[Rfam]
RNA sequence: GUUCAGUGAUGAAUGCAAACAGACAAGCAUAUGGCUGAGUGUCUGUGAUGCCAGCUUACUUCUGAGAAC
Numbered sequence: 001g002u003u004c005a006g007u008g009a010u011g012a013a014u015g016c017a018a019a020c021a022g023a024c025a026a027g028c029a030u031a032u033g034g035c036u037g038a039g040u041g042u043c044u045g046u047g048a049u050g051c052c053a054g055c056u057u058a059c060u061u062c063u064g065a066g067a068a069c
Stems, first nucleotide, its partner, number of pairs: 001069004
Small nucleolar RNA SNORD27: a 69-nucleotide sequence from Chrysemys picta. The organism belongs to Chrysemys picta, within Eukaryota. The match comes from Rfam's covariance-model search (64 bits). By type it is a C/D-box small nucleolar RNA. On this family, see Tycowski et al., Nature 1996: "A mammalian gene with introns instead of exons generating stable RNA products".